Notes:
This 310-nucleotide sequence from Musa acuminata belongs to the Rfam family "Plant signal recognition particle RNA". The family's RNA type in Rfam is non-coding RNA gene. The family's consensus secondary structure is taken from published work.

Nucleotides: 310
Stems, first nucleotide, its partner, number of pairs: 001040003004023007028037003043310001045308005051301003056296002059293003064288004072281001075278005081268002084265006091259003096255001101254008110242002113240005119233006126227003131170006138163001140161003144157005171176001178223002181220002189214003196207003
Number, partner (000 for none) and nucleotide at each position: 001040g002039c003038c004023g005022a006021g007020c008019c009018a010017g011000g012000u013000a014000g015000c016000g017010u018009u019008g020007g021006c022005u023004u024000g025000u026000a027000a028037c029036a030035c031000a032000a033000g034000c035030g036029u037028g038003g039002g040001c041000a042000a043310a044000u045308g046307a047306g048305g049304u050000u051301u052300g053299g054000a055000a056296u057295g058000g059293u060292c061291u062000a063000u064288g065287g066286a067285g068000c069000c070000a071000c072281a073000u074000c075278u076277g077276g078275g079274u080000u081268g082267g083000u084265u085264g086263c087262g088261a089260u090000c091259g092258u093257g094000u095000a096255g097000a098000a099000g100000c101254c102253u103252g104251g105250c106249c107248u108247g109000c110242c111241c112000g113240u114239u115238c116237c117236a118000a119233g120232u121231c122230a123229g124228g125000u126227a127226g128225a129000u130000u131170g132169a133168g134167c135166c136165a137000u138163g139000c140161g141160g142159c143000u144157u145156g146155g147154g148153c149000g150000a151000a152000g153148g154147c155146c156145u157144g158000u159142g160141c161140u162000u163138c164000u165136u166135g167134g168133u169132u170131c171176u172000u173000a174000g175000a176171g177000c178223a179222g180000a181220g182219g183000g184000c185000a186000c187000c188000g189214c190213g191212u192000c193000a194000g195000g196207c197206u198205g199000g200000c201000u202000u203000c204000a205198c206197a207196g208000a209000g210000c211000a212191g213190c214189g215000a216000u217000c218000a219182c220181c221000a222179c223178u224000c225128u226127c227126u228124c229123u230122u231121g232120a233119c234000g235000g236117u237116g238115g239114g240113a241111g242110g243000a244000u245000a246000a247108c248107a249106g250105g251104u252103c253102g254101g255096c256000g257093c258092a259091c260089a261088u262087c263086g264085c265084a266000u267082c268081c269000a270000c271000c272000a273000c274079g275078c276077c277076c278075a279000c280000c281072u282000c283000c284000c285067c286066u287065c288064c289000u290000u291061a292060g293059a294000c295057c296056a297000g298000a299053c300052c301051a302000c303000c304049a305048c306047c307046u308045u309000u310043u